This 588-nucleotide RNA belongs to the Rfam family "ROOL RNA". Pairs were carried over by alignment from the consensus structure, which is taken from published work.
RNA sequence: CUUGAAAACUUAAAAAGAUAGAACCUAUUGAUAAACGCCAACCAACAUUGGCGGUAGGAAAUUCUGAAUAGGCUACCGAUUCUACCGAAGGAUACUUUGGUCAUGGCGGUUGCUCUUAAAGGUAACGAUAAGAACAGGAGGUUGAGACCCAAAGCCUAAGGAAUUGUACUUUAUUUAUCGUAGUAUAGCACAGGAAGUGUGUCGGGGGAACAAUAGAAAGUUAAUCGAAAGAUUAGCCUCUCCAAGUUAGGUGGAAACAGGUGGUGCUGUCGCAGACCUUGGAAAUACCAAUAAUUCCCUUUGCGGUGAAGCCAAGAAAUUGGUGUAUAAGACAUGCAAGAAACCUCUGAGUAGCAGAAAGCGCAAAUAACAAGAUGAUGGAAGAUGAAAAUGGUCAGUAGUCUUUGAAUUUCUGAAAGUAACUGUGAAAGGUGCUGGGUAGACAUUCCCGUCAAGGCAAUACGGACUUUGGUCAGGGUAAGAAUGCAUAAGGGUAGCUGCUUAUGCACAGACUUAUUCUCCUUGUAGUGUAAUAAUAUUAAAGAUAAAUAAAGUAGGUUGAAGAACCCAAAUCUGUUUAAGUUUUUA
Dot-bracket structure: ......((.((.(((.(......(((((.......(((((........)))))))))).((((((.........((((.(...(((((((....)))))))...).))))((.(((((..(....)..))))).))...((..(...))).........))))))......(..((......(.........((..(((((((((((((.............((((....))))......((((((....((((...(((.[[[[.)))))))....))))))...]]]]....))))))[[[[[.....(((((....)))))......)))))))......))..(.....((((....]]]]].............................................[[[[.......))))....)......(...........)...((((.......(.......)).(((..((.....(((((........)))))...]]]].))..))).)))...............).......))..)....((((....))))......).))).)).))...